The family of this 176-nucleotide RNA from Fusobacterium varium is "Lysine riboswitch aptamer". Pairs were carried over by alignment from the consensus structure, which is taken from published work.

[Rfam]
RNA sequence: AGUUUAGAUAGAGGAGCAGAAAACAAGAGUAUAACUAUAUUAGUCUGGCAGACAUUUAAAAUAGUUAGAAAGGGAAUUUUGCCGAAAUGGAAGAGAAUUAGCCAUUCUCUUUUGUUGGGAAUAUAGAGAAUAUCUAUAUUACUGUCAUUGAUUAUCAAUGGAGUGCUAUCUGUGGG
Numbered sequence: 001a002g003u004u005u006a007g008a009u010a011g012a013g014g015a016g017c018a019g020a021a022a023a024c025a026a027g028a029g030u031a032u033a034a035c036u037a038u039a040u041u042a043g044u045c046u047g048g049c050a051g052a053c054a055u056u057u058a059a060a061a062u063a064g065u066u067a068g069a070a071a072g073g074g075a076a077u078u079u080u081g082c083c084g085a086a087a088u089g090g091a092a093g094a095g096a097a098u099u100a101g102c103c104a105u106u107c108u109c110u111u112u113u114g115u116u117g118g119g120a121a122u123a124u125a126g127a128g129a130a131u132a133u134c135u136a137u138a139u140u141a142c143u144g145u146c147a148u149u150g151a152u153u154a155u156c157a158a159u160g161g162a163g164u165g166c167u168a169u170c171u172g173u174g175g176g
Stems, first nucleotide, its partner, number of pairs: 006171006016082006024074001032067007086116012117143002120140008145161007

Lineage of the source: Bacteria > Fusobacteriati > Fusobacteriota > Fusobacteriia > Fusobacterium varium. A search with the family's covariance model found it, with a score of 122 bits.